[Rfam]
RNA sequence: UUGGUUGUGAUGAUUAUAAACAAUUCCUCGUACUGAUUGCUAUUGCCAUGGCAUGACAGACACGAAUACACCCAUAGAAUAUGAGCGUC
Numbered sequence: 001u002u003g004g005u006u007g008u009g010a011u012g013a014u015u016a017u018a019a020a021c022a023a024u025u026c027c028u029c030g031u032a033c034u035g036a037u038u039g040c041u042a043u044u045g046c047c048a049u050g051g052c053a054u055g056a057c058a059g060a061c062a063c064g065a066a067u068a069c070a071c072c073c074a075u076a077g078a079a080u081a082u083g084a085g086c087g088u089c
Stems, first nucleotide, its partner, number of pairs: 003089002006087002
The family of this 89-nucleotide sequence from Medicago truncatula is "Small nucleolar RNA snoR8a". For this family Rfam cites "Multiple snoRNA gene clusters from Arabidopsis" (Brown et al., RNA, 2001). Its family is annotated with nucleolus and RNA processing in the Gene Ontology.